[Rfam]
This 67-nucleotide RNA sequence from Enterococcus faecium belongs to the Rfam family "Fluoride riboswitch aptamer (crcB RNA motif)". For this family Rfam cites "Widespread genetic switches and toxicity resistance proteins for fluoride" (Baker et al., Science, 2012). Rfam's curators put it in the seed alignment.

RNA sequence: AGUGAAUAGGUGUAUGGUGUUCGCCUUUAAAUGCUAACGAAAGAUAGCUAAUGACGCCUACUAAAGU
Numbered sequence: 001a002g003u004g005a006a007u008a009g010g011u012g013u014a015u016g017g018u019g020u021u022c023g024c025c026u027u028u029a030a031a032u033g034c035u036a037a038c039g040a041a042a043g044a045u046a047g048c049u050a051a052u053g054a055c056g057c058c059u060a061c062u063a064a065a066g067u
Stems, first nucleotide, its partner, number of pairs: 010026001012024002016058006033048004